[Rfam]
RNA sequence: CACAAUGAUGAACACCAUACCAAUAAGCAUAGUUCACCUGAGAUCUUCGGAUUGUUGAACGAAAACUGUAUACCAUCUUUCACCUUUAUCUGAUA
Numbered sequence: 001c002a003c004a005a006u007g008a009u010g011a012a013c014a015c016c017a018u019a020c021c022a023a024u025a026a027g028c029a030u031a032g033u034u035c036a037c038c039u040g041a042g043a044u045c046u047u048c049g050g051a052u053u054g055u056u057g058a059a060c061g062a063a064a065a066c067u068g069u070a071u072a073c074c075a076u077c078u079u080u081c082a083c084c085u086u087u088a089u090c091u092g093a094u095a
Base pairs, nucleotide, nucleotide: 006019008018009017010016032060033059034058035057036056042053043052044051045050
Dot-bracket structure: .....(.(((.....))))............(((((.....((((....))))..)))))...................................